[Rfam]
RNA sequence: UGCUGACGCGAGGGCGUAUACUUAAGCAGAACCAAAACUGCUGAAGCGAAGCAGUGUGCCAAGAAGCCGGUAGUGGAUUUACCGGCAUUGUAAUGGCGUUUGCUCAUUGAGGAGUGCCUCAAACCAAAAAAAACAUAAGCAAAACCCUUUGCAUUUGCAGCGCAUUUCAGGUAAACAAAUUUGGAAAGGAACGCUCGUGAACCACCACGGGCGUUUUCUU
Number, nucleotide and partner (000 for none) at each position: 001u053002g052003c051004u050005g047006a000007c000008g000009c000010g000011a000012g000013g000014g000015c000016g000017u000018a000019u000020a000021c000022u000023u000024a000025a042026g041027c040028a039029g038030a000031a000032c184033c183034a182035a181036a180037a000038c029039u028040g027041c026042u025043g000044a000045a000046g000047c005048g000049a000050a004051g003052c002053a001054g165055u164056g163057u162058g161059c160060c000061a000062a000063g000064a000065a000066g086067c085068c084069g083070g082071u081072a080073g205074u204075g203076g202077a000078u200079u000080u072081a071082c070083c069084g068085g067086c066087a155088u000089u153090g152091u151092a150093a149094u000095g000096g000097c000098g000099u000100u000101u000102g000103c000104u000105c000106a000107u000108u000109g000110a000111g000112g000113a000114g000115u000116g000117c000118c000119u000120c000121a000122a000123a000124c000125c000126a000127a000128a000129a000130a000131a000132a000133a000134c000135a000136u000137a000138a000139g000140c000141a000142a000143a000144a000145c000146c000147c000148u000149u093150u092151g091152c090153a089154u000155u087156u000157g000158c000159a000160g059161c058162g057163c056164a055165u054166u000167u000168c000169a000170g000171g000172u000173a000174a000175a000176c000177a000178a000179a000180u036181u035182u034183g033184g032185a000186a000187a000188g217189g216190a215191a214192c213193g212194c211195u210196c209197g208198u207199g206200a078201a000202c076203c075204a074205c073206c199207a198208c197209g196210g195211g194212c193213g192214u191215u190216u189217u188218c000219u000220u000

The family of this 220-nucleotide RNA is "FuFi-1 RNA". By type it is a small RNA. It is one of the family's seed sequences.